[Rfam]
RNA sequence: CAUGGGAGUAGAAGCGGUCAGUGCCUGGAAAUGGCAUGGGACAUUGCUCUGGCG
Numbered sequence: 001c002a003u004g005g006g007a008g009u010a011g012a013a014g015c016g017g018u019c020a021g022u023g024c025c026u027g028g029a030a031a032u033g034g035c036a037u038g039g040g041a042c043a044u045u046g047c048u049c050u051g052g053c054g
Stems, first nucleotide, its partner, number of pairs: 005050006015039001018041002021037005027032001

Source information
The family of this 54-nucleotide RNA from Pseudomonas sp. VLB120 is "Xanthine riboswitch aptamer (NMT1 RNA)". A reference for the family is Yu and Breaker (2020), "A bacterial riboswitch class senses xanthine and uric acid to regulate genes associated with purine oxidation", RNA. The base pairs follow the family's consensus structure, which is taken from published work. The sequence is in the family's curated seed alignment. Gene Ontology term of the family: purine nucleobase binding.